[Rfam]
RNA sequence: GAGUGGGGUAGAGGCGCGGAGACCAUGAGUACCCGCCGGGAGAGCCGGGGCUCGCCGAACGGCGGCGAAAGGGGGAUCCGCCGAAGUCCCGUCACCACCCCGGGGUGGCGGGGCUGGGCCGGCAUCGAACAGGUGUCGGACUGUCACGGCUUAUGCAGCCGUGGAGCGCUAUCCUGCAA
Numbered sequence: 001g002a003g004u005g006g007g008g009u010a011g012a013g014g015c016g017c018g019g020a021g022a023c024c025a026u027g028a029g030u031a032c033c034c035g036c037c038g039g040g041a042g043a044g045c046c047g048g049g050g051c052u053c054g055c056c057g058a059a060c061g062g063c064g065g066c067g068a069a070a071g072g073g074g075g076a077u078c079c080g081c082c083g084a085a086g087u088c089c090c091g092u093c094a095c096c097a098c099c100c101c102g103g104g105g106u107g108g109c110g111g112g113g114c115u116g117g118g119c120c121g122g123c124a125u126c127g128a129a130c131a132g133g134u135g136u137c138g139g140a141c142u143g144u145c146a147c148g149g150c151u152u153a154u155g156c157a158g159c160c161g162u163g164g165a166g167c168g169c170u171a172u173c174c175u176g177c178a179a
Base pairs, nucleotide, nucleotide: 006174007173008172009171010170011169016081017080018079019078020077023074024073033065034064035063036062037061038060085115086114087113088112089111090110091109092108093107094106095105096104116142117141119139120138121137122136123135124134125133126132144164145163146162147161148160149159150158
Annotation: The family of this 179-nucleotide RNA from Calditerricola satsumensis is "Lysine riboswitch aptamer". From the family's description: Riboswitches are metabolite binding domains within certain messenger RNAs that serve as precision sensors for their corresponding targets. A search with the family's covariance model found it, with a score of 117 bits.